[Rfam]
RNA sequence: CAAACGGCUCCUUUAGGAGCCACCAAAUAAAAUAAUAGUUUUUUA
Numbered sequence: 001c002a003a004a005c006g007g008c009u010c011c012u013u014u015a016g017g018a019g020c021c022a023c024c025a026a027a028u029a030a031a032a033u034a035a036u037a038g039u040u041u042u043u044u045a
Stems, first nucleotide, its partner, number of pairs: 006021006
A member of the RNA family "Histone 3' UTR stem-loop" from Stylophora pistillata, 45 nucleotides long.
The family's RNA type in Rfam is cis-regulatory element.
On this family, see Williams and Marzluff, Nucleic Acids Res 1995: "The sequence of the stem and flanking sequences at the 3' end of histone mRNA are critical determinants for the binding of the stem-loop binding protein".